[Rfam]
Description:
The family of this 84-nucleotide RNA from Xenopus tropicalis is "Small nucleolar RNA SNORD60". The family's consensus secondary structure was predicted with PFOLD.

Nucleotides: 084
Base pairs, nucleotide, nucleotide: 001083002082003081004080041053042052043051044050
Number, partner (000 for none) and nucleotide at each position: 001083u002082g003081c004080c005000a006000g007000u008000g009000a010000u011000g012000u013000u014000c015000c016000c017000u018000a019000a020000a021000u022000u023000c024000u025000g026000a027000c028000a029000c030000c031000u032000c033000a034000u035000a036000u037000g038000a039000a040000a041053c042052u043051g044050u045000u046000a047000a048000u049000a050044a051043c052042g053041g054000c055000u056000u057000c058000u059000u060000g061000a062000u063000u064000c065000u066000a067000u068000u069000g070000c071000u072000u073000g074000g075000g076000c077000u078000g079000a080004g081003g082002c083001a084000c